[Rfam]
RNA sequence: AAACGUUCACCUCGCUUCUGUGGGGCGCAGCUCAACCCAAGCCAUGGAACGGGGGCUUGGA
Numbered sequence: 001a002a003a004c005g006u007u008c009a010c011c012u013c014g015c016u017u018c019u020g021u022g023g024g025g026c027g028c029a030g031c032u033c034a035a036c037c038c039a040a041g042c043c044a045u046g047g048a049a050c051g052g053g054g055g056c057u058u059g060g061a
Stems, first nucleotide, its partner, number of pairs: 004051005010025005037060005042054002
This 61-nucleotide RNA belongs to the Rfam family "Glutamine-II riboswitch aptamer". It is one of the family's seed sequences. Its family is annotated with glutamine binding in the Gene Ontology. On this family, see Huang et al., Nucleic Acids Res 2019: "Structure and ligand binding of the glutamine-II riboswitch".